Rfam assigns this 103-nucleotide RNA sequence from Albidovulum aquaemixtae to the family "TPP riboswitch aptamer (THI element)". The family's consensus secondary structure is taken from published work. A search with the family's covariance model found it, with a score of 70 bits.
RNA sequence: AAGAUCACCUCGGGGUGCCCUGCGUGCAGGGCUGAGAUGCGAAAGCGAACCCGUUGAACCUGAACCGGUUAAGACCGGCGGAGGGAAGGUUUGGCAAACAGCC
Numbered sequence: 001a002a003g004a005u006c007a008c009c010u011c012g013g014g015g016u017g018c019c020c021u022g023c024g025u026g027c028a029g030g031g032c033u034g035a036g037a038u039g040c041g042a043a044a045g046c047g048a049a050c051c052c053g054u055u056g057a058a059c060c061u062g063a064a065c066c067g068g069u070u071a072a073g074a075c076c077g078g079c080g081g082a083g084g085g086a087a088g089g090u091u092u093g094g095c096a097a098a099c100a101g102c103c
Stems, first nucleotide, its partner, number of pairs: 007090004011053004016047001017032005039046002059084003065078004
Dot-bracket structure: ......((((((((.((((((......)))))......((....)))..)))).....(((...((((......))))...)))..)))).............